[Rfam]
RNA sequence: UCGACUGUACUCUACAGGAUCAUGUUCGUAGUUAAUAUGUUCUGAUCUCUCAGUACUUUAGAUGGGAAACCAGCUGGUUGAUGACACGAUGUACGCCAUCCGUAAAGGGAGGCUGUGGUCGCCGCACCUUUUAGGUGUGAUAGGCCCUCGAUGAUCUUGCGUAGCUAGUACUCGCCAUCUGCGCCCUUGGGCCGGGUGGUUGAUGUCUAGCUUUCUUGCAAGGAUGGUCGUACCGUCUGACAGCCU
Numbered sequence: 001u002c003g004a005c006u007g008u009a010c011u012c013u014a015c016a017g018g019a020u021c022a023u024g025u026u027c028g029u030a031g032u033u034a035a036u037a038u039g040u041u042c043u044g045a046u047c048u049c050u051c052a053g054u055a056c057u058u059u060a061g062a063u064g065g066g067a068a069a070c071c072a073g074c075u076g077g078u079u080g081a082u083g084a085c086a087c088g089a090u091g092u093a094c095g096c097c098a099u100c101c102g103u104a105a106a107g108g109g110a111g112g113c114u115g116u117g118g119u120c121g122c123c124g125c126a127c128c129u130u131u132u133a134g135g136u137g138u139g140a141u142a143g144g145c146c147c148u149c150g151a152u153g154a155u156c157u158u159g160c161g162u163a164g165c166u167a168g169u170a171c172u173c174g175c176c177a178u179c180u181g182c183g184c185c186c187u188u189g190g191g192c193c194g195g196g197u198g199g200u201u202g203a204u205g206u207c208u209a210g211c212u213u214u215c216u217u218g219c220a221a222g223g224a225u226g227g228u229c230g231u232a233c234c235g236u237c238u239g240a241c242a243g244c245c246u
Stems, first nucleotide, its partner, number of pairs: 002039002006034001009032003016026002019023001046069001048067005054061001073244004091233005096227006105158004111146003116140001165218001167216002170213001

A member of the RNA family "ACEA small nucleolar RNA U3" from Tieghemiomyces parasiticus, 246 nucleotides long. For this family Rfam cites "Nuclear retention elements of U3 small nucleolar RNA" (Speckmann et al., Mol Cell Biol, 1999). A search with the family's covariance model found it, with a score of 56 bits. Rfam describes the family as follows. Small nucleolar RNAs (snoRNAs) are involved in the processing and modification of rRNA in the nucleolus. The family has 28 seed sequences and 2,156 matches in Rfam 15.1.